[Rfam]
RNA sequence: CUCUUAUCCAGAGUGGCGGAGGGACUGGCCCGAUGAAGCCCGGCAACCUCGGUGCAGAUCAGUGUACCGGAUGGUGCCAAUUCCUGCAGAAACCCCGGUUUCUGAAAGAUAAGAG
Numbered sequence: 001c002u003c004u005u006a007u008c009c010a011g012a013g014u015g016g017c018g019g020a021g022g023g024a025c026u027g028g029c030c031c032g033a034u035g036a037a038g039c040c041c042g043g044c045a046a047c048c049u050c051g052g053u054g055c056a057g058a059u060c061a062g063u064g065u066a067c068c069g070g071a072u073g074g075u076g077c078c079a080a081u082u083c084c085u086g087c088a089g090a091a092a093c094c095c096c097g098g099u100u101u102c103u104g105a106a107a108g109a110u111a112a113g114a115g
Base pairs, nucleotide, nucleotide: 001115002114003113004112005111006110007109008108013041015040016039017038021031022030023029025086027084028083042078043077044076045075047074048073049070050069051068052067053066054065055064082107087104088103089102090101091100092099
Rfam assigns this 115-nucleotide RNA sequence from Thermoactinomyces sp. AS95 to the family "SAM riboswitch aptamer (S box leader)". The source organism's lineage runs through Bacteria, Bacillota, Bacilli, Caryophanales and Thermoactinomyces. Its family is annotated with regulation of gene expression in the Gene Ontology. From the family's description: The SAM riboswitch is found upstream of a number of genes which code for proteins involved in methionine or cysteine biosynthesis in Gram-positive bacteria.